[Rfam]
Rfam assigns this 124-nucleotide sequence from Monodelphis domestica to the family "Small nucleolar RNA SNORD23".
The literature on the family includes a 2002 paper in Mol Cell Biol by Galardi et al., "Purified box C/D snoRNPs are able to reproduce site-specific 2'-O-methylation of target RNA in vitro".
The family has 15 seed sequences and 153 matches in Rfam 15.1.
Taxonomically the source falls in Monodelphis (Eukaryota, Opisthokonta, Chordata, Didelphidae).
Its family is annotated with RNA processing and nucleolus in the Gene Ontology.
RNA sequence: UGCCUGAUGAAGAGACGCAUCCUUGCUCGCCUGAGCCCUACCCUGAUAGUGGUUUGGGGUAAUAGGUGACACCAUGGCUCCCCUAGGAAGGUCUGGAUUGGCCUAUGCCUGGGGGCUGAGGGCA
Numbered sequence: 001u002g003c004c005u006g007a008u009g010a011a012g013a014g015a016c017g018c019a020u021c022c023u024u025g026c027u028c029g030c031c032u033g034a035g036c037c038c039u040a041c042c043c044u045g046a047u048a049g050u051g052g053u054u055u056g057g058g059g060u061a062a063u064a065g066g067u068g069a070c071a072c073c074a075u076g077g078c079u080c081c082c083c084u085a086g087g088a089a090g091g092u093c094u095g096g097a098u099u100g101g102c103c104u105a106u107g108c109c110u111g112g113g114g115g116c117u118g119a120g121g122g123c124a
Stems, first nucleotide, its partner, number of pairs: 001124005